Shown here is a 102-nucleotide sequence from Bacillus aquiflavi, a member of the family "Purine riboswitch aptamer". NCBI's taxonomy places the organism under Bacteria, Bacilli, Caryophanales, Bacillaceae, Bacillus. It scores 88 bits against the family's covariance model.
[Rfam]
RNA sequence: AAAAUUAAACGAUUGUAACCUCAUAUAAUCUUGGGAAUAUGGCCCAUAAGUUUCUACCCGAUAACCGUAAAUUAUUGGACUAUGAGGAAGUAGGAGCAAUCC
Numbered sequence: 001a002a003a004a005u006u007a008a009a010c011g012a013u014u015g016u017a018a019c020c021u022c023a024u025a026u027a028a029u030c031u032u033g034g035g036a037a038u039a040u041g042g043c044c045c046a047u048a049a050g051u052u053u054c055u056a057c058c059c060g061a062u063a064a065c066c067g068u069a070a071a072u073u074a075u076u077g078g079a080c081u082a083u084g085a086g087g088a089a090g091u092a093g094g095a096g097c098a099a100u101c102c
Stems, first nucleotide, its partner, number of pairs: 019087007029049001032046004058078007
Gene Ontology term of the family: purine nucleobase biosynthetic process.